[Rfam]
RNA sequence: AGAACGCGCUGUGACUGACGGAGCUUCGUGGGACACCACGGUGGAGCAGCGCAGACAUGACCUGCCGACCGUCUGGGCACGCAUC
Numbered sequence: 001a002g003a004a005c006g007c008g009c010u011g012u013g014a015c016u017g018a019c020g021g022a023g024c025u026u027c028g029u030g031g032g033a034c035a036c037c038a039c040g041g042u043g044g045a046g047c048a049g050c051g052c053a054g055a056c057a058u059g060a061c062c063u064g065c066c067g068a069c070c071g072u073c074u075g076g077g078c079a080c081g082c083a084u085c
Base pairs, nucleotide, nucleotide: 006052007051008050009049010048011047012046015043017073018072019071020070021069028039029038030037031036063079064078065077066076